The family of this 107-nucleotide RNA sequence from Prunus yedoensis is "MIR6274 microRNA precursor family". The family's consensus secondary structure was predicted with RNAalifold. A search with the family's covariance model found it, with a score of 86 bits. Rfam 15.1 lists 342 matches to the family in 8 species.
RNA sequence: GGAUAUCACUAUUUUGCUAUCCCCGACCAAUAACAUAAUGACACAUGAAAAAGUUAUCCUACGUGUCAUUGCGUUAUUGGUUGGGGAUAGCAAAAAGUGUUAUCUCC
Dot-bracket structure: .((.(......(((((((((.(((((((((((((.(((((((((.((..(......)..)).))))))))).))))))))))))).))))))))).......).)).